[Rfam]
Nucleotides: 091
Stems, first nucleotide, its partner, number of pairs: 004088005011081004016075006023068008032059002
Number, partner (000 for none) and nucleotide at each position: 001000g002000c003000a004088u005087u006086g007085a008084a009000a010000g011081u012080g013079a014078g015000a016075a017074u018073u019072g020071g021070a022000g023068g024067a025066a026065a027064a028063c029062a030061a031000a032059c033058u034000g035000a036000u037000c038000a039000u040000a041000c042000a043000c044000u045000g046000u047000u048000u049000g050000a051000u052000g053000u054000u055000u056000c057000c058033a059032g060000c061030u062029u063028g064027u065026u066025u067024u068023u069000c070021u071020c072019c073018a074017a075016u076000g077000u078014c079013u080012c081011a082000c083000c084008u085007u086006c087005a088004g089000u090000a091000g